[Rfam]
RNA sequence: UGAUACUAGGGUCAAAAGCUCCAAAAGCCGAUCGUGCUUGCACGAAGAGGAUUUUGAGCUUGGGACCCGCCAAAACAUGAGGAUGCAGCGAUUUUCGAAGAAAAUCAGCGAAUCCGAAUGUUUUUAGAAUUGUGAAAGAUGCGAAGCAGCGGAGCAAUUCGUAAGUAUCA
Numbered sequence: 001u002g003a004u005a006c007u008a009g010g011g012u013c014a015a016a017a018g019c020u021c022c023a024a025a026a027g028c029c030g031a032u033c034g035u036g037c038u039u040g041c042a043c044g045a046a047g048a049g050g051a052u053u054u055u056g057a058g059c060u061u062g063g064g065a066c067c068c069g070c071c072a073a074a075a076c077a078u079g080a081g082g083a084u085g086c087a088g089c090g091a092u093u094u095u096c097g098a099a100g101a102a103a104a105u106c107a108g109c110g111a112a113u114c115c116g117a118a119u120g121u122u123u124u125u126a127g128a129a130u131u132g133u134g135a136a137a138g139a140u141g142c143g144a145a146g147c148a149g150c151g152g153a154g155c156a157a158u159u160c161g162u163a164a165g166u167a168u169c170a
Base pairs, nucleotide, nucleotide: 001170002169003168004167005166006165007164010067011066012065013064016061017060018059019058020057021056023055024054025053026052028050029049032045033044034043035042036041072124073123074122075121076120077119078118081115082114083113084112088109089108090106091105092104093103094102095101096100127160128159129158130157131156132155133154138150140148141147
Rfam assigns this 170-nucleotide RNA sequence from Clostridiales bacterium KLE1615 to the family "Clostridiales-1 RNA". It is annotated as a small RNA. Taxonomically the source falls in Eubacteriales (Bacteria, Bacillati, Bacillota, Clostridia). It scores 119 bits against the family's covariance model.